c-di-AMP riboswitch aptamer (ydaO/yuaA leader): a 135-nucleotide sequence from Desulforamulus ruminis.
[Rfam]
RNA sequence: AUAAAAUGGGCGCCUAAUUUCUAUUUUGAGGAAACGGGGGAACCGUUAUUUUGGGGGUGAACUACCUGUUGGUAGCGGGCUAUCUUUCGGUCCGAACCCGUCAGCUAACCCCGUAGGAGUAGAAAGUGGGGGAAA
Numbered sequence: 001a002u003a004a005a006a007u008g009g010g011c012g013c014c015u016a017a018u019u020u021c022u023a024u025u026u027u028g029a030g031g032a033a034a035c036g037g038g039g040g041a042a043c044c045g046u047u048a049u050u051u052u053g054g055g056g057g058u059g060a061a062c063u064a065c066c067u068g069u070u071g072g073u074a075g076c077g078g079g080c081u082a083u084c085u086u087u088c089g090g091u092c093c094g095a096a097c098c099c100g101u102c103a104g105c106u107a108a109c110c111c112c113g114u115a116g117g118a119g120u121a122g123a124a125a126g127u128g129g130g131g132g133a134a135a
Stems, first nucleotide, its partner, number of pairs: 011119001013117002018033005034114006044054001055099003063074004077093004
A search with the family's covariance model found it, with a score of 84 bits. This family represents a conserved RNA structure found upstream of the ydaO and yuaA genes in Bacillus subtilis and related genes in other bacteria. The ydaO/yuaA element is thought to act as a genetic 'off' switch for the ydaO and yuaA genes in its native state.